[Rfam]
RNA: Bacterial RNase P class A
RNA sequence: GAAGCACGCCAGACCGCCGCUGGUGCUAGCCGCAAGGCCGAGACUUCGGGAAACCGGGGUAACGGGUCGAAAGACCGCACUGGAGGAACGUCCGGACUGCAUAGGACAGCAUAGGAGGUAACCCCUCUCCACCGUGAGGUGAGGAUUAGAGCAACAGAGACGAGUCGGCCCCGGGGCAACCCAGGGUCGGGUGAAACGGGCAAUCUCUAUGCGCAGCAAUACCAAGUAGGCCAGCGCGCAGCAAUGCAUUUUGUGGUCCGCAAGAAUCGCUGGCGGGUAGGUAGCACCGAGCCGGGUGGGCGACCCCCGGCCCAGAUUAAUGGCGGUCACACCGGGCUGUUUUUGUAACUUGUUACACGAACAGCUUGGCGCACAGAAUCCGGCUUAUCGGCGAGCUUCACAC
Numbered sequence: 001g002a003a004g005c006a007c008g009c010c011a012g013a014c015c016g017c018c019g020c021u022g023g024u025g026c027u028a029g030c031c032g033c034a035a036g037g038c039c040g041a042g043a044c045u046u047c048g049g050g051a052a053a054c055c056g057g058g059g060u061a062a063c064g065g066g067u068c069g070a071a072a073g074a075c076c077g078c079a080c081u082g083g084a085g086g087a088a089c090g091u092c093c094g095g096a097c098u099g100c101a102u103a104g105g106a107c108a109g110c111a112u113a114g115g116a117g118g119u120a121a122c123c124c125c126u127c128u129c130c131a132c133c134g135u136g137a138g139g140u141g142a143g144g145a146u147u148a149g150a151g152c153a154a155c156a157g158a159g160a161c162g163a164g165u166c167g168g169c170c171c172c173g174g175g176g177c178a179a180c181c182c183a184g185g186g187u188c189g190g191g192u193g194a195a196a197c198g199g200g201c202a203a204u205c206u207c208u209a210u211g212c213g214c215a216g217c218a219a220u221a222c223c224a225a226g227u228a229g230g231c232c233a234g235c236g237c238g239c240a241g242c243a244a245u246g247c248a249u250u251u252u253g254u255g256g257u258c259c260g261c262a263a264g265a266a267u268c269g270c271u272g273g274c275g276g277g278u279a280g281g282u283a284g285c286a287c288c289g290a291g292c293c294g295g296g297u298g299g300g301c302g303a304c305c306c307c308c309g310g311c312c313c314a315g316a317u318u319a320a321u322g323g324c325g326g327u328c329a330c331a332c333c334g335g336g337c338u339g340u341u342u343u344u345g346u347a348a349c350u351u352g353u354u355a356c357a358c359g360a361a362c363a364g365c366u367u368g369g370c371g372c373a374c375a376g377a378a379u380c381c382g383g384c385u386u387a388u389c390g391g392c393g394a395g396c397u398u399c400a401c402a403c
Base pairs, nucleotide, nucleotide: 001399002398003397004396005395007393008392009391010390011388012328013327014326015325016324017323018322020083021082022081023080024079025078026077088386090384092383093382094381095380096379097216098215099214100213104259105258106257107256109212110211111210112209113208114128115127116126117125118124129143130141131140132139133138144207145206149205150204151201152200166190168188170186171185172184174182175181220283221282222281223280230274231273232272233271234270235269250264251263252262253261254260291311292310293309294308295307296306298305299304